The family of this 164-nucleotide RNA from Rhinolophus ferrumequinum is "U1 spliceosomal RNA".
Taxonomically the source falls in Rhinolophus (Eukaryota, Chordata, Theria, Laurasiatheria).
U1 is a small nuclear RNA (snRNA) component of the spliceosome (involved in pre-mRNA splicing).
The match comes from Rfam's covariance-model search (147 bits).
The base pairs follow the family's consensus structure, which is taken from published work.
By type it is a spliceosomal small nuclear RNA.
RNA sequence: AUACUUACCUGACAGGGGAGAUACCAUGAUCACGAAGGUGGUUUGCCCAGGGUGAGGCUUAUCCAUUGCACUCCGGAUGUGCUGACCCCUGUGAUUUCUCCAAAUGUGGGAAACUCGACUGCAUGAUUUGUGCUAGUGGGGGACAGCAUUUGCGCUUUCUCCCA
Number, nucleotide and partner (000 for none) at each position: 001a000002u000003a000004c000005u000006u000007a000008c000009c000010u000011g000012a000013c121014a120015g119016g048017g047018g046019a000020g044021a043022u000023a042024c041025c040026a039027u038028g000029a000030u000031c000032a000033c000034g000035a000036a000037g000038g027039u026040g025041g024042u023043u021044u020045g000046c018047c017048c016049a090050g089051g088052g087053u000054g086055a000056g083057g082058c081059u000060u079061a078062u077063c076064c075065a000066u000067u000068g000069c000070a000071c000072u000073c000074c000075g064076g063077a062078u061079g060080u000081g058082c057083u056084g000085a000086c054087c052088c051089c050090u049091g000092u117093g116094a115095u113096u112097u111098c000099u109100c108101c000102a000103a000104a000105u000106g000107u000108g100109g099110g000111a097112a096113a095114c000115u094116c093117g092118a000119c015120u014121g013122c000123a000124u000125g000126a000127u000128u000129u000130g000131u000132g000133c000134u000135a000136g000137u000138g163139g162140g161141g160142g159143a158144c000145a156146g155147c154148a000149u000150u000151u000152g000153c000154g147155c146156u145157u000158u143159c142160u141161c140162c139163c138164a000